Annotation:
The record is a 109-nucleotide sequence from Bacillus sp. V5-8f, which matches "PyrR binding site" in Rfam. Rfam classes the family as a cis-regulatory element. Taxonomically the source falls in Bacillus (Bacteria, Bacillati, Bacillota, Caryophanales).
[Rfam]
RNA sequence: AGAACCUUUAACACAGUCCAGAGAGGCUGGGAAGGAAGCGGAUCUUGAAAGGUAAUCAAUCCUAGACGAGCUCGACUCCCCAUGCCCACUGGCAUGGGGAUUUUUUAUU
Numbered sequence: 001a002g003a004a005c006c007u008u009u010a011a012c013a014c015a016g017u018c019c020a021g022a023g024a025g026g027c028u029g030g031g032a033a034g035g036a037a038g039c040g041g042a043u044c045u046u047g048a049a050a051g052g053u054a055a056u057c058a059a060u061c062c063u064a065g066a067c068g069a070g071c072u073c074g075a076c077u078c079c080c081c082a083u084g085c086c087c088a089c090u091g092g093c094a095u096g097g098g099g100a101u102u103u104u105u106u107a108u109u
Base pairs, nucleotide, nucleotide: 005035006034007033008032009031014029015028016027017026018025039070043066044065045064047062049060052057074103075102077100078099079098080097081096082095083094084093085092086091
This family represents the PyrR binding site and terminator structure. This RNA structure is found upstream of a variety of genes involved in pyrimidine biosynthesis and transport. The alignment also includes a portion of the antiterminator structure.
The match comes from Rfam's covariance-model search (60 bits).